[Rfam]
A member of the RNA family "Plant small nucleolar RNA R71" from Capsicum annuum, 106 nucleotides long.
Rfam classes the family as a C/D-box small nucleolar RNA.
Its family is annotated with RNA processing and nucleolus in the Gene Ontology.
The organism belongs to Capsicum, within Eukaryota.
A search with the family's covariance model found it, with a score of 48 bits.

Nucleotides: 106
Base pairs, nucleotide, nucleotide: 001106003104004103005101006100057074058073060071
Number, partner (000 for none) and nucleotide at each position: 001106u002000a003104a004103u005101g006100a007000u008000g009000a010000u011000a012000a013000g014000g015000a016000u017000a018000a019000u020000u021000u022000u023000u024000u025000a026000g027000c028000a029000u030000g031000c032000c033000u034000u035000u036000a037000a038000a039000u040000c041000u042000c043000u044000c045000c046000c047000a048000a049000u050000a051000u052000u053000g054000g055000c056000a057074g058073a059000g060071a061000u062000u063000u064000u065000c066000u067000a068000c069000a070000u071060u072000u073058u074057u075000u076000u077000u078000c079000u080000a081000a082000a083000a084000c085000u086000c087000a088000a089000g090000a091000u092000c093000u094000c095000a096000c097000u098000c099000c100006u101005c102000a103004a104003u105000a106001g
Annotation: Rfam 15.1 lists 278,378 matches to the family in 216 species. For this family Rfam cites "Plant snoRNAs: functional evolution and new modes of gene expression" (Brown et al., Trends Plant Sci, 2003).